[Rfam]
RNA sequence: ACAAAAGCAGGGUCUUGUUGCCAUUAUCGAACAAGGCUCUCGUAAACUUCAGGGAGAUUACUCGCAUUAUUAUUGGGUGAACCUCUGGAUUUUUGCCGCUAACUUAAGGUUCAGUAAAUGAUGCAACAUUU
Numbered sequence: 001a002c003a004a005a006a007g008c009a010g011g012g013u014c015u016u017g018u019u020g021c022c023a024u025u026a027u028c029g030a031a032c033a034a035g036g037c038u039c040u041c042g043u044a045a046a047c048u049u050c051a052g053g054g055a056g057a058u059u060a061c062u063c064g065c066a067u068u069a070u071u072a073u074u075g076g077g078u079g080a081a082c083c084u085c086u087g088g089a090u091u092u093u094u095g096c097c098g099c100u101a102a103c104u105u106a107a108g109g110u111u112c113a114g115u116a117a118a119u120g121a122u123g124c125a126a127c128a129u130u131u
Stems, first nucleotide, its partner, number of pairs: 005049003011038002014035004065123007078113007
Annotation:
Rfam assigns this 131-nucleotide sequence from Gossypium stocksii to the family "Small nucleolar RNA snoR74". On this family, see Marker et al., Curr Biol 2002: "Experimental RNomics: identification of 140 candidates for small non-messenger RNAs in the plant Arabidopsis thaliana". The organism belongs to Gossypium, within Eukaryota. Pairs were carried over by alignment from the consensus structure, which was predicted with WAR.